[Rfam]
RNA: Group II catalytic intron D1-D4-3
RNA sequence: UCCACCGCGAGGUGGGAUCUGAAGGAAGCCGCAGGCAAAACGCUGGCCUGACGAACAGGAAUCGCAUACGAGGCGGCCAUGCCGGGUAAGGAGUCCAUUAUCUUCAAAGCCCUGUACUUGUACGGAAAGCAUGGACGUAUAUGCGGCGGGCAUAAGCGUGAAGGUGGGUGCG
Dot-bracket structure: ((((((....)))))).............(((..((...(((((.(((((...........((((((.....(((.((((((.((((..((((........))))...))))................)))))).)))..)))))))))))...)))))....))..)))..